[Rfam]
RNA sequence: UCUGGUCAGGCUGUAACAGCAAAUCAAAAUAGGUGUUAGGAUUCAGAAUCCUAACACCUAUUUUGAUUUGCUGUUACAGCCUGACCAGA
Numbered sequence: 001u002c003u004g005g006u007c008a009g010g011c012u013g014u015a016a017c018a019g020c021a022a023a024u025c026a027a028a029a030u031a032g033g034u035g036u037u038a039g040g041a042u043u044c045a046g047a048a049u050c051c052u053a054a055c056a057c058c059u060a061u062u063u064u065g066a067u068u069u070g071c072u073g074u075u076a077c078a079g080c081c082u083g084a085c086c087a088g089a
Stems, first nucleotide, its partner, number of pairs: 001089006013077012026064011
Dot-bracket structure: ((((((......((((((((((((.(((((((((((.................))))))))))).))))))))))))......))))))
RNA: mir-15 microRNA precursor family